A member of the RNA family "mir-221 microRNA precursor family" from Takifugu rubripes, 77 nucleotides long. A reference for the family is Yao et al. (2008), "MicroRNA profile of Marek's disease virus-transformed T-cell line MSB-1: predominance of virus-encoded microRNAs", J Virol. The sequence is in the family's curated seed alignment.

RNA sequence: CCUGAACCUGGCAUACAAUGUAGAUUUCUGUGUGCUUGGAUUCUACAGCUACAUUGUCUGCUGGGUUUCCGGAUAGC
Numbered sequence: 001c002c003u004g005a006a007c008c009u010g011g012c013a014u015a016c017a018a019u020g021u022a023g024a025u026u027u028c029u030g031u032g033u034g035c036u037u038g039g040a041u042u043c044u045a046c047a048g049c050u051a052c053a054u055u056g057u058c059u060g061c062u063g064g065g066u067u068u069c070c071g072g073a074u075a076g077c
Stems, first nucleotide, its partner, number of pairs: 008064006015057009028048004
Its family is annotated with miRNA-mediated post-transcriptional gene silencing and RISC complex in the Gene Ontology. Taxonomically the source falls in Takifugu (Eukaryota, Metazoa, Craniata, Euteleostomi).